MIR480 microRNA precursor family: a 114-nucleotide RNA sequence from Populus deltoides. The family has 69 seed sequences and 3,070 matches in Rfam 15.1. For this family Rfam cites "Novel and mechanical stress-responsive MicroRNAs in Populus trichocarpa that are absent from Arabidopsis" (Lu et al., Plant Cell, 2005). A search with the family's covariance model found it, with a score of 53 bits.
RNA sequence: UAAUCUGUUUGGGGCAAAUUCCCAUCUAGUUAUGACGGACCCACUUUUUACAUCUCAAAAUCACCCGUGAGAAUUACUGUGUGAACAAUAACUUUUUAAACUUUUAAUUGGAGU
Numbered sequence: 001u002a003a004u005c006u007g008u009u010u011g012g013g014g015c016a017a018a019u020u021c022c023c024a025u026c027u028a029g030u031u032a033u034g035a036c037g038g039a040c041c042c043a044c045u046u047u048u049u050a051c052a053u054c055u056c057a058a059a060a061u062c063a064c065c066c067g068u069g070a071g072a073a074u075u076a077c078u079g080u081g082u083g084a085a086c087a088a089u090a091a092c093u094u095u096u097u098a099a100a101c102u103u104u105u106a107a108u109u110g111g112a113g114u
Base pairs, nucleotide, nucleotide: 004112005111006110007109008107009106012103014101018097025091027088029086030085031084